[Rfam]
RNA sequence: CUGUACUAAUUUCAUACUGUUCAUAUAUCCGCAGAGAUAGGGUCUGCAAGUUUCUACCAGGCUGCCGUAAAUGGCCUGACUAUGAGCAAAAACUGUGCCGUA
Numbered sequence: 001c002u003g004u005a006c007u008a009a010u011u012u013c014a015u016a017c018u019g020u021u022c023a024u025a026u027a028u029c030c031g032c033a034g035a036g037a038u039a040g041g042g043u044c045u046g047c048a049a050g051u052u053u054c055u056a057c058c059a060g061g062c063u064g065c066c067g068u069a070a071a072u073g074g075c076c077u078g079a080c081u082a083u084g085a086g087c088a089a090a091a092a093c094u095g096u097g098c099c100g101u102a
Base pairs, nucleotide, nucleotide: 018088019087020086021085022084023083024082025081031047032046033045034044035043058078059077060076061075062074063073064072
Dot-bracket structure: .................((((((((.....(((((.......)))))..........(((((((.......)))))))..))))))))..............
The record is a 102-nucleotide RNA from Desulfitobacterium dichloroeliminans, which matches "Purine riboswitch aptamer" in Rfam. Gene Ontology term of the family: purine nucleobase biosynthetic process.